[Rfam]
RNA sequence: GGUCUGUGAUGACAAAUCUAAAGGCUUGUUUCUCGGAACAUUCGCAGUGGCCGCCUAAGAUCUUUCGCCUUCGCCAGGCUUGAGAGAAAAUGCUGCUUUAACCCUUCCUUGGAUGUCUGAGACA
Numbered sequence: 001g002g003u004c005u006g007u008g009a010u011g012a013c014a015a016a017u018c019u020a021a022a023g024g025c026u027u028g029u030u031u032c033u034c035g036g037a038a039c040a041u042u043c044g045c046a047g048u049g050g051c052c053g054c055c056u057a058a059g060a061u062c063u064u065u066c067g068c069c070u071u072c073g074c075c076a077g078g079c080u081u082g083a084g085a086g087a088a089a090a091u092g093c094u095g096c097u098u099u100a101a102c103c104c105u106u107c108c109u110u111g112g113a114u115g116u117c118u119g120a121g122a123c124a
Stems, first nucleotide, its partner, number of pairs: 002123003061087006
RNA: Small nucleolar RNA SNORD14
Organism: Rhododendron simsii